Shown here is a 127-nucleotide RNA from Sporotomaculum syntrophicum, a member of the family "FMN riboswitch aptamer (RFN element)". A reference for the family is Vitreschak et al. (2002), "Regulation of riboflavin biosynthesis and transport genes in bacteria by transcriptional and translational attenuation", Nucleic Acids Res. A search with the family's covariance model found it, with a score of 118 bits. The organism belongs to Sporotomaculum, within Bacteria. Pairs were carried over by alignment from the consensus structure, which is taken from published work.
RNA sequence: UGUAACCUUCAGGGACUGGUGAAAUUCCGUACCGGCGGUAAGGUCUUAUCCGAGCCCGCGAGCCCUAAUGGGUUGAUCCGGUGUAAUUCCGGGGCCGACAGUAAAGUCUGGAUGGAAGAAGGUUGUA
Number, nucleotide and partner (000 for none) at each position: 001u000002g000003u125004a124005a123006c122007c121008u120009u119010c118011a000012g000013g000014g000015a000016c000017u029018g028019g027020u000021g000022a000023a000024a000025u000026u000027c019028c018029g017030u000031a107032c106033c097034g096035g059036c058037g057038g056039u000040a000041a000042g000043g000044u000045c000046u000047u000048a000049u000050c000051c000052g000053a000054g095055c094056c038057c037058g036059c035060g000061a000062g073063c072064c071065c000066u000067a000068a000069u000070g000071g064072g063073u062074u000075g000076a000077u093078c092079c091080g090081g089082u000083g000084u000085a000086a000087u000088u000089c081090c080091g079092g078093g077094g055095c054096c034097g033098a000099c110100a109101g108102u000103a000104a000105a000106g032107u031108c101109u100110g099111g000112a000113u000114g000115g000116a000117a000118g010119a009120a008121g007122g006123u005124u004125g003126u000127a000